Rfam assigns this 173-nucleotide sequence from Giesbergeria anulus to the family "ZMP/ZTP riboswitch aptamer (pfl RNA motif)". The match comes from Rfam's covariance-model search (42 bits). Pairs were carried over by alignment from the consensus structure, which is taken from published work.

RNA sequence: AACAGGGCACGCGACUGGCGAUAGGCACAGCCCCCUGCUGACCAUCACAACAAGGCGCUGUUGCUGACGUGGACACGAAACCAACCCUUGUGGGGCCGUGAAACCACUGGGAAGCGUGCCGCCGUGGGCCUGUCAGGCCCUUGGUGAUUCCGCCGUUCGCCUGGGCAGCCCUU
Numbered sequence: 001a002a003c004a005g006g007g008c009a010c011g012c013g014a015c016u017g018g019c020g021a022u023a024g025g026c027a028c029a030g031c032c033c034c035c036u037g038c039u040g041a042c043c044a045u046c047a048c049a050a051c052a053a054g055g056c057g058c059u060g061u062u063g064c065u066g067a068c069g070u071g072g073a074c075a076c077g078a079a080a081c082c083a084a085c086c087c088u089u090g091u092g093g094g095g096c097c098g099u100g101a102a103a104c105c106a107c108u109g110g111g112a113a114g115c116g117u118g119c120c121g122c123c124g125u126g127g128g129c130c131u132g133u134c135a136g137g138c139c140c141u142u143g144g145u146g147a148u149u150c151c152g153c154c155g156u157u158c159g160c161c162u163g164g165g166c167a168g169c170c171c172u173u
Base pairs, nucleotide, nucleotide: 006120007119008118009117010116011115012114015111016110017161018160019159020158021157090107091106092105093104150168152166153165154164
Dot-bracket structure: .....(((((((..(([[[[[....................................................................((((..........))))..))..))))))).............................(.(((..]]]]]..))).).....